[Rfam]
RNA sequence: AAUCACCUGGGGUGUGCGACACUCCUGACAUUUUGAACCUACACUUUUGAACAGGGAUUCCUAUAUCUAUGUAUGGAUGUCAUGCCCUAUUACCGGGGACGGCAGAAGUACAUGUGCGGUUACCCACCUAGCACAUGCUAGGACUCAAAAUUCAGGAACCGGCAUUUUGGGCUUCUU
Numbered sequence: 001a002a003u004c005a006c007c008u009g010g011g012g013u014g015u016g017c018g019a020c021a022c023u024c025c026u027g028a029c030a031u032u033u034u035g036a037a038c039c040u041a042c043a044c045u046u047u048u049g050a051a052c053a054g055g056g057a058u059u060c061c062u063a064u065a066u067c068u069a070u071g072u073a074u075g076g077a078u079g080u081c082a083u084g085c086c087c088u089a090u091u092a093c094c095g096g097g098g099a100c101g102g103c104a105g106a107a108g109u110a111c112a113u114g115u116g117c118g119g120u121u122a123c124c125c126a127c128c129u130a131g132c133a134c135a136u137g138c139u140a141g142g143a144c145u146c147a148a149a150a151u152u153c154a155g156g157a158a159c160c161g162g163c164a165u166u167u168u169g170g171g172c173u174u175c176u177u
Base pairs, nucleotide, nucleotide: 006171007170008169009168010167011166012165013164014163015162017161018160031150032149033148034147035146036145038142039141054125055124056123060119061118065115068114069113070112071111072110073109074108080102081101085098086097087096088095
This 177-nucleotide RNA sequence from Roseburia sp. CAG:380 belongs to the Rfam family "6S / SsrS RNA". It is annotated as a non-coding RNA gene. A search with the family's covariance model found it, with a score of 68 bits. The organism belongs to Roseburia, within Bacteria. The literature on the family includes a 2017 paper in Molecular Cell by Chen et al., "6S RNA Mimics B-Form DNA to Regulate Escherichia coli RNA Polymerase".